RNA: Bacterial large subunit ribosomal RNA, nucleotides 9 to 521
RNA sequence: GACUAAGCGUACACGGUGGAUGCCUUGGCAGUCAGAGGCGAUGAAGGACGUGGUAAUCUGCGAUAAGCGUUGGCGAGUUGAUAAACAAGCUUUGACCCAACGAUUUCCGAAUGGGGAAACCCACCGGCAUAAGCCGGUAUCCUUUACCUGAAUACAUAGGGUUUAGGAGGCGAACCCGGGGAACUGAAACAUCUAAGUACCCGGAGGAAAAGAAAUCAACCGAGAUUCCCCUAGUAGCGGCGAGCGAACGGGGACCAGCCCUUAAGCAAUUUUGGUGUUAGUGGAACACUCUGGAAAGUGUGGCCAUAGUGGGUGAUAGCCCCGUACACGAAAACACCUUUAUUGUGAAAUCGAGUAGGACGGCACACGUGAAAUGUUGUCUGAACAUGGGGGGACCAUCCUCCAAGGCUAAAUACUACUGACUGACCGAUAGUGAACCAGUACCGUGAGGGAAAGGCGAAAAGAACCCCGUUGAGGGGAGUGAAACAGAACCUGAAACCGUGUACGUACAAG
Numbered sequence: 001g002a003c004u005a006a007g008c009g010u011a012c013a014c015g016g017u018g019g020a021u022g023c024c025u026u027g028g029c030a031g032u033c034a035g036a037g038g039c040g041a042u043g044a045a046g047g048a049c050g051u052g053g054u055a056a057u058c059u060g061c062g063a064u065a066a067g068c069g070u071u072g073g074c075g076a077g078u079u080g081a082u083a084a085a086c087a088a089g090c091u092u093u094g095a096c097c098c099a100a101c102g103a104u105u106u107c108c109g110a111a112u113g114g115g116g117a118a119a120c121c122c123a124c125c126g127g128c129a130u131a132a133g134c135c136g137g138u139a140u141c142c143u144u145u146a147c148c149u150g151a152a153u154a155c156a157u158a159g160g161g162u163u164u165a166g167g168a169g170g171c172g173a174a175c176c177c178g179g180g181g182a183a184c185u186g187a188a189a190c191a192u193c194u195a196a197g198u199a200c201c202c203g204g205a206g207g208a209a210a211a212g213a214a215a216u217c218a219a220c221c222g223a224g225a226u227u228c229c230c231c232u233a234g235u236a237g238c239g240g241c242g243a244g245c246g247a248a249c250g251g252g253g254a255c256c257a258g259c260c261c262u263u264a265a266g267c268a269a270u271u272u273u274g275g276u277g278u279u280a281g282u283g284g285a286a287c288a289c290u291c292u293g294g295a296a297a298g299u300g301u302g303g304c305c306a307u308a309g310u311g312g313g314u315g316a317u318a319g320c321c322c323c324g325u326a327c328a329c330g331a332a333a334a335c336a337c338c339u340u341u342a343u344u345g346u347g348a349a350a351u352c353g354a355g356u357a358g359g360a361c362g363g364c365a366c367a368c369g370u371g372a373a374a375u376g377u378u379g380u381c382u383g384a385a386c387a388u389g390g391g392g393g394g395a396c397c398a399u400c401c402u403c404c405a406a407g408g409c410u411a412a413a414u415a416c417u418a419c420u421g422a423c424u425g426a427c428c429g430a431u432a433g434u435g436a437a438c439c440a441g442u443a444c445c446g447u448g449a450g451g452g453a454a455a456g457g458c459g460a461a462a463a464g465a466a467c468c469c470c471g472u473u474g475a476g477g478g479g480a481g482u483g484a485a486a487c488a489g490a491a492c493c494u495g496a497a498a499c500c501g502u503g504u505a506c507g508u509a510c511a512a513g
Stems, first nucleotide, its partner, number of pairs: 007508010022493001023457002027428002029425007036417002038171002046108003049062003068102006077090003113122003123138006140168004146162004175206001176204005186193002216223002226413001227254005237245002257410004267345004274338006281329003287302003291298001305309001311323003358382008389404005444451002467479004